[Rfam]
PhotoRC-II RNA: a 99-nucleotide RNA.

RNA sequence: AUAAAUAAUACAACUGAUCACAAACCGAGACCUAUAGUCAGUCUAAUACUUCGUCUCUCAUACCUGUAAGCGAGGGGUUUACAGGAAUAAGUUUCGCAU
Numbered sequence: 001a002u003a004a005a006u007a008a009u010a011c012a013a014c015u016g017a018u019c020a021c022a023a024a025c026c027g028a029g030a031c032c033u034a035u036a037g038u039c040a041g042u043c044u045a046a047u048a049c050u051u052c053g054u055c056u057c058u059c060a061u062a063c064c065u066g067u068a069a070g071c072g073a074g075g076g077g078u079u080u081a082c083a084g085g086a087a088u089a090a091g092u093u094u095c096g097c098a099u
Base pairs, nucleotide, nucleotide: 014041015040016039017038018037020035027057028056029055030054031053063085064084065083066082067081068080069079